[Rfam]
RNA: cspA thermoregulator
RNA sequence: AUCGGUUUGGAAUACAGACCUUAUGAAAGCAGUUUUAGUAAAGCAGUCCUCAGUUCAAGCGCUAUCUUAGAUAUCCCUUUUUCUCGAGUCUCCUCCUAAGUGCCAGAUUAAGUCCAACUCUGCUGAACAGACCAUGUUCGCCGCGAAUCGUGGCUCAAGAAAUUGAAAAAGGUAAUAUUUAUGUCUAACAAAAUGACUGGUUUGGUAAAAUGGUUCAACGCUGAGAAAGGUUUCGGCUUCAUUUCUCCAACUGAUGGCAGCAAAGAUGUAUUCGUACACUUCUCUGCAAUCCAGAGCGACAGCUUCAAAACUCUUGAUGAAGGCCAGAAAGUUGAGUUCACCAUCGAGAAUGGUGCUAAAGGCCCAGCUGCUGCUAACGUUGUUGCGCUGUAAUUCAGCCCUGCGUUAAGUUAGCUAAAAACCCGCAUUUGCGGGUUUUUUUGU
Dot-bracket structure: ...((((((.....))))))........(.((..........(.((((((...((.......((.(.(.((.(((...(.(..........(((..(..((.(.....................).))...........(((((.....)))))............)..)))........).).(((..........)))...........))))).).).))...))))....))))).....)).)...((((((.......((.....))....((((.(((((..((.(((..(............)))).)).....).))))))))........))))))....(((.(((...))))))((.(.((.(......).))..).)).(((.(((.....))).))).....((((((((((....))))))))))....